[Rfam]
RNA sequence: GCCAAAUGAUGUUUAAAUAACCUUGGUGAGCACUCUGUGCAAAGAUGACACCGAUCUAUCACCCAAGACUGAUGGCU
Numbered sequence: 001g002c003c004a005a006a007u008g009a010u011g012u013u014u015a016a017a018u019a020a021c022c023u024u025g026g027u028g029a030g031c032a033c034u035c036u037g038u039g040c041a042a043a044g045a046u047g048a049c050a051c052c053g054a055u056c057u058a059u060c061a062c063c064c065a066a067g068a069c070u071g072a073u074g075g076c077u
Stems, first nucleotide, its partner, number of pairs: 001076004030040004